[Rfam]
RNA sequence: UGACGGGGGCCCGCACAAGCGGUGGAGCAUGUGGUUUAAUUCGACGCAACGCGAAGAACCUUACCCGGGCUUGAAGCGCAAGUGAUCAUCGACGAAAGUCGACUUCCGCAAGGACACUUGUAGAGGUGCUGCAUGGCUGUCGUCAGCUCGUGUCGUGAGAUGUUGGGUUAAGUCCCGCAACGAGCGCAACCCUUGUCUGCUGUUGCCAUCAGUUCGGCUGGGCACUCUGCGGAGACUGCCGGUGAUAAACCGGAGGAAGGUGGGGAUGACGUCAAGUCAGCAUGGCCUUUAUGUCCGGGGCUACACACGUGCUACAAUGGCCGGCACAAAGCGUUGCGAUCCCGCGAGGGGGAGCUAAUCGCACAAAGCCGGUCUCAGUUCGGAUUGUAGGCUGCAACUCGCCUGCAUGAAGUUGGAAUCGCUAGUAAUCGCGGAUCAGCAUGCCGCGGUGAAUACGUUCCCGGGCCUUGUACACACCGCCCGUCACAUCACGAAAGUUGGCUGUACUAGAAGUCGCCGAGCUAACCCGCUUGCGGGAGGUAAGCGCCGAAGGUAUGGUUGAUGAUUGGGGUGAAGUCGUAACAAGG
Numbered sequence: 001u002g003a004c005g006g007g008g009g010c011c012c013g014c015a016c017a018a019g020c021g022g023u024g025g026a027g028c029a030u031g032u033g034g035u036u037u038a039a040u041u042c043g044a045c046g047c048a049a050c051g052c053g054a055a056g057a058a059c060c061u062u063a064c065c066c067g068g069g070c071u072u073g074a075a076g077c078g079c080a081a082g083u084g085a086u087c088a089u090c091g092a093c094g095a096a097a098g099u100c101g102a103c104u105u106c107c108g109c110a111a112g113g114a115c116a117c118u119u120g121u122a123g124a125g126g127u128g129c130u131g132c133a134u135g136g137c138u139g140u141c142g143u144c145a146g147c148u149c150g151u152g153u154c155g156u157g158a159g160a161u162g163u164u165g166g167g168u169u170a171a172g173u174c175c176c177g178c179a180a181c182g183a184g185c186g187c188a189a190c191c192c193u194u195g196u197c198u199g200c201u202g203u204u205g206c207c208a209u210c211a212g213u214u215c216g217g218c219u220g221g222g223c224a225c226u227c228u229g230c231g232g233a234g235a236c237u238g239c240c241g242g243u244g245a246u247a248a249a250c251c252g253g254a255g256g257a258a259g260g261u262g263g264g265g266a267u268g269a270c271g272u273c274a275a276g277u278c279a280g281c282a283u284g285g286c287c288u289u290u291a292u293g294u295c296c297g298g299g300g301c302u303a304c305a306c307a308c309g310u311g312c313u314a315c316a317a318u319g320g321c322c323g324g325c326a327c328a329a330a331g332c333g334u335u336g337c338g339a340u341c342c343c344g345c346g347a348g349g350g351g352g353a354g355c356u357a358a359u360c361g362c363a364c365a366a367a368g369c370c371g372g373u374c375u376c377a378g379u380u381c382g383g384a385u386u387g388u389a390g391g392c393u394g395c396a397a398c399u400c401g402c403c404u405g406c407a408u409g410a411a412g413u414u415g416g417a418a419u420c421g422c423u424a425g426u427a428a429u430c431g432c433g434g435a436u437c438a439g440c441a442u443g444c445c446g447c448g449g450u451g452a453a454u455a456c457g458u459u460c461c462c463g464g465g466c467c468u469u470g471u472a473c474a475c476a477c478c479g480c481c482c483g484u485c486a487c488a489u490c491a492c493g494a495a496a497g498u499u500g501g502c503u504g505u506a507c508u509a510g511a512a513g514u515c516g517c518c519g520a521g522c523u524a525a526c527c528c529g530c531u532u533g534c535g536g537g538a539g540g541u542a543a544g545c546g547c548c549g550a551a552g553g554u555a556u557g558g559u560u561g562a563u564g565a566u567u568g569g570g571g572u573g574a575a576g577u578c579g580u581a582a583c584a585a586g587g
Stems, first nucleotide, its partner, number of pairs: 001474002003471003007468007015458002019422005024315001026313008034304002040055004064299007078121001080119005089102005105114003125288002128286004134282002136277003139273001141271002146185006152161003164177004191265004196233005202227001206222002210220003236256002239253005319374007331362003336355002341350003381412001386407007428450007477586001479583001482579002487573004492568003497563012513548001515546003521541003526537004
Rfam assigns this 587-nucleotide part of an RNA from uncultured Acidobacteriales bacterium HF0200_23L05 to the family "Bacterial small subunit ribosomal RNA". The sequence is in the family's curated seed alignment. Its Rfam clan is "SSU clan". On this family, see Yusupov et al., Science 2001: "Crystal structure of the ribosome at 5.5 A resolution". Gene Ontology terms of the family: ribosome and structural constituent of ribosome.